[Rfam]
Nucleotides: 188
Base pairs, nucleotide, nucleotide: 007024008023009022011018045064046063047062048061049060050059066082067081068080069079070078071077110142111141112140113139117135123132124131125130145181146180147179148178149177152174153173156170
Number, partner (000 for none) and nucleotide at each position: 001000a002000u003000u004000g005000c006000u007024u008023c009022u010000c011018c012000a013000u014000u015000u016000u017000g018011g019000c020000u021000a022009a023008g024007a025000u026000c027000a028000a029000a030000u031000g032000a033000a034000g035000u036000g037000u038000u039000u040000g041000u042000u043000c044000u045064u046063a047062u048061c049060a050059g051000u052000g053000u054000a055000a056000u057000a058000u059050c060049u061048g062047a063046u064045a065000g066082g067081u068080c069079c070078u071077c072000c073000a074000c075000c076000u077071g078070a079069g080068g081067a082066c083000a084000a085000c086000u087000u088000u089000u090000u091000a092000c093000a094000u095000g096000g097000a098000u099000u100000u101000u102000u103000g104000g105000a106000g107000c108000a109000g110142g111141g112140a113139g114000g115000u116000a117135g118000a119000a120000u121000a122000g123132g124131a125130g126000c127000u128000u129000g130125c131124u132123c133000a134000g135117u136000c137000c138000a139113u140112u141111c142110c143000a144000c145181g146180u147179a148178u149177u150000g151000a152174c153173c154000c155000a156170a157000c158000a159000u160000u161000a162000c163000a164000g165000u166000a167000c168000u169000u170156u171000c172000u173153g174152g175000a176000g177149a178148g179147u180146g181145c182000a183000u184000g185000c186000a187000c188000g

Overview:
Shown here is a 188-nucleotide sequence from Myotis myotis, a member of the family "U2 spliceosomal RNA". The base pairs follow the family's consensus structure, which is taken from published work.